[Rfam]
RNA sequence: UUGUAACACGAACCGGUGCUAAAAGGUCCUGUCCAACGGCUACUAACAGAUGCUGUCGGGGCAGGGACCCUUUAGCACCGGUUCGUAUUACAAA
Number, nucleotide and partner (000 for none) at each position: 001u000002u000003g091004u090005a089006a088007c000008a086009c085010g084011a083012a082013c081014c080015g079016g078017u077018g076019c075020u074021a073022a072023a071024a000025g069026g068027u067028c000029c065030u064031g000032u060033c059034c058035a000036a056037c055038g000039g000040c000041u000042a000043c049044u048045a000046a000047c000048a044049g043050a000051u000052g000053c000054u000055g037056u036057c000058g034059g033060g032061g000062c000063a000064g030065g029066g000067a027068c026069c025070c000071u023072u022073u021074a020075g019076c018077a017078c016079c015080g014081g013082u012083u011084c010085g009086u008087a000088u006089u005090a004091c003092a000093a000094a000